[Rfam]
This 307-nucleotide RNA from Hibiscus trionum belongs to the Rfam family "Plant signal recognition particle RNA". A search with the family's covariance model found it, with a score of 224 bits. By type it is a non-coding RNA gene.
RNA sequence: GCCGAGCUUUGUUACGGAAGCUUGUAACCCGAGUGGGGGCAUUAAGAUGAUAGGACAUGGGUUUCGCUCCUUGAGUCGGAUCUUAGGUGGCCUUGUUAUGGCUUGCCCGUUCCAAGCCAAGAGUUGGGCUGCGGGACUUCAGUGAAAAUUGUGGGUCUCGUGGGCUCUUAGAGGGAAGGGUACUGCGUGAGGCUGGUUUCACAGAGCAGCGAUGACCUUCUUCUCUUGGCAGUGGGAGGAUUACAGGCUUGAUCCACUGCGAUCCAACAUGUCUCAGCGAGCCUGCCUUCUCUGGACCAUCAUCUUU
Numbered sequence: 001g002c003c004g005a006g007c008u009u010u011g012u013u014a015c016g017g018a019a020g021c022u023u024g025u026a027a028c029c030c031g032a033g034u035g036g037g038g039g040c041a042u043u044a045a046g047a048u049g050a051u052a053g054g055a056c057a058u059g060g061g062u063u064u065c066g067c068u069c070c071u072u073g074a075g076u077c078g079g080a081u082c083u084u085a086g087g088u089g090g091c092c093u094u095g096u097u098a099u100g101g102c103u104u105g106c107c108c109g110u111u112c113c114a115a116g117c118c119a120a121g122a123g124u125u126g127g128g129c130u131g132c133g134g135g136a137c138u139u140c141a142g143u144g145a146a147a148a149u150u151g152u153g154g155g156u157c158u159c160g161u162g163g164g165c166u167c168u169u170a171g172a173g174g175g176a177a178g179g180g181u182a183c184u185g186c187g188u189g190a191g192g193c194u195g196g197u198u199u200c201a202c203a204g205a206g207c208a209g210c211g212a213u214g215a216c217c218u219u220c221u222u223c224u225c226u227u228g229g230c231a232g233u234g235g236g237a238g239g240a241u242u243a244c245a246g247g248c249u250u251g252a253u254c255c256a257c258u259g260c261g262a263u264c265c266a267a268c269a270u271g272u273c274u275c276a277g278c279g280a281g282c283c284u285g286c287c288u289u290c291u292c293u294g295g296a297c298c299a300u301c302a303u304c305u306u307u
Stems, first nucleotide, its partner, number of pairs: 001040003004023007028037003044306008053297001056294002059290002061287001063285001066282001068280002071277005077271001078265005084259003088256003093252001100249006107239002110237005116230008126167003129163011140151004168173001174221006186211003193204003